A member of the RNA family "c-di-AMP riboswitch aptamer (ydaO/yuaA leader)" from Streptomyces sp. ADI93-02, 160 nucleotides long. Pairs were carried over by alignment from the consensus structure. Taxonomically the source falls in Streptomyces (Bacteria, Bacillati, Actinomycetes, Streptomycetaceae). A search with the family's covariance model found it, with a score of 66 bits.
Nucleotides: 160
Base pairs, nucleotide, nucleotide: 005032006031034140035139036138037137038136039135044078079125080124081123087102088101089100090099105119106118107117108116
Number, partner (000 for none) and nucleotide at each position: 001000g002000u003000u004000a005032c006031c007000c008000g009000a010000c011000c012000g013000a014000c015000c016000a017000c018000u019000u020000c021000u022000c023000g024000u025000a026000c027000g028000g029000c030000a031006g032005g033000a034140g035139c036138g037137g038136g039135g040000g041000a042000c043000c044078c045000a046000a047000g048000u049000a050000a051000g052000c053000g054000c055000c056000g057000a058000u059000c060000c061000g062000g063000u064000u065000u066000c067000c068000g069000g070000a071000g072000c073000g074000g075000c076000u077000c078044g079125g080124g081123g082000u083000g084000a085000a086000g087102u088101c089100g090099c091000a092000u093000u094000c095000g096000c097000a098000u099090g100089c101088g102087g103000c104000c105119g106118g107117g108116c109000a110000u111000c112000u113000c114000c115000a116108g117107c118106c119105c120000g121000a122000a123081c124080c125079c126000g127000a128000c129000a130000g131000c132000u133000c134000a135039c136038u137037u138036c139035g140034c141000a142000g143000g144000c145000g146000a147000c148000g149000g150000a151000g152000a153000g154000g155000a156000a157000u158000u159000c160000a